[Rfam]
RNA sequence: AAAAAAUAGGGGUUGUAGGGGACAGGGUCCCCUGCUGUUUUAAGAGGGGUACUCAGGAUGUUAAACGUCCGCCGAAGGAAGG
Number, nucleotide and partner (000 for none) at each position: 001a000002a000003a000004a000005a000006a000007u000008a000009g000010g000011g000012g000013u000014u000015g035016u034017a033018g032019g031020g030021g029022a028023c000024a000025g000026g000027g000028u022029c021030c020031c019032c018033u017034g016035c015036u000037g000038u000039u000040u000041u000042a000043a000044g000045a000046g000047g000048g000049g000050u000051a000052c000053u000054c000055a000056g070057g069058a068059u067060g066061u000062u000063a000064a000065a000066c060067g059068u058069c057070c056071g000072c000073c000074g000075a000076a000077g000078g000079a000080a000081g000082g000
The family of this 82-nucleotide RNA from Caldisalinibacter kiritimatiensis is "Clostridiales-2 RNA". The match comes from Rfam's covariance-model search (74 bits). Lineage of the source: Bacteria > Bacillati > Bacillota > Tissierellia > Caldisalinibacter.